[Rfam]
The family of this 221-nucleotide sequence from Sutterella megalosphaeroides is "HNH endonuclease-associated RNA and ORF (HEARO) RNA". The literature on the family includes a 2009 paper in Nature by Weinberg et al., "Exceptional structured noncoding RNAs revealed by bacterial metagenome analysis". The organism belongs to Sutterella, within Bacteria.
RNA sequence: GUCAAUCACCCCUGCCUGAAGGCAGAGGCUUGAAGAAGCCUGAUUGACCAGCCUCAGUGAUCCGAAAGGAAAACUACGUUGCAGUUAGGUUACAAGACCCGCCCCGGGGUGCUUCCUCAGCUCCGGGCUCCGGAAACGGCAGAAGCAGACAAGAUUUGGGUAUUCACGAAACGGUCUGCCGUUGCAAUGCCGGACUGCAACAUUGGCGAGGGGAAUUCAAC
Numbered sequence: 001g002u003c004a005a006u007c008a009c010c011c012c013u014g015c016c017u018g019a020a021g022g023c024a025g026a027g028g029c030u031u032g033a034a035g036a037a038g039c040c041u042g043a044u045u046g047a048c049c050a051g052c053c054u055c056a057g058u059g060a061u062c063c064g065a066a067a068g069g070a071a072a073a074c075u076a077c078g079u080u081g082c083a084g085u086u087a088g089g090u091u092a093c094a095a096g097a098c099c100c101g102c103c104c105c106g107g108g109g110u111g112c113u114u115c116c117u118c119a120g121c122u123c124c125g126g127g128c129u130c131c132g133g134a135a136a137c138g139g140c141a142g143a144a145g146c147a148g149a150c151a152a153g154a155u156u157u158g159g160g161u162a163u164u165c166a167c168g169a170a171a172c173g174g175u176c177u178g179c180c181g182u183u184g185c186a187a188u189g190c191c192g193g194a195c196u197g198c199a200a201c202a203u204u205g206g207c208g209a210g211g212g213g214a215a216u217u218c219a220a221c
Stems, first nucleotide, its partner, number of pairs: 001048008010028002012025002015022002029038003051207003056075003078201009088191001099133002103127008111217001113215006135183009